[Rfam]
RNA sequence: UUUUUGAGAACCAUUUGAAUCAAGUAGUGAUGUGAUUCAAAUGGUUCUC
Numbered sequence: 001u002u003u004u005u006g007a008g009a010a011c012c013a014u015u016u017g018a019a020u021c022a023a024g025u026a027g028u029g030a031u032g033u034g035a036u037u038c039a040a041a042u043g044g045u046u047c048u049c
Base pairs, nucleotide, nucleotide: 006049007048008047009046010045011044012043013042014041015040016039017038018037019036020035021034022033
Annotation: Shown here is a 49-nucleotide RNA sequence from Actaea heracleifolia, a member of the family "Plastid-ccsA-ndhD-2 3UTR RNA". The source organism's lineage runs through Eukaryota, Streptophyta, Euphyllophyta, Magnoliopsida and Actaea. The literature on the family includes a 2004 paper in Nucleic Acids Res by Zandueta-Criado and Bock, "Surprising features of plastid ndhD transcripts: addition of non-encoded nucleotides and polysome association of mRNAs with an unedited start codon". Plastid ccsA-ndhD-2 is a non-coding RNA (ncRNA) recognised in plastids. It was found in the three prime untranslated region (3UTR) of ccsA and ndhD genes, its 3UTR location suggests a role in transcript maturation.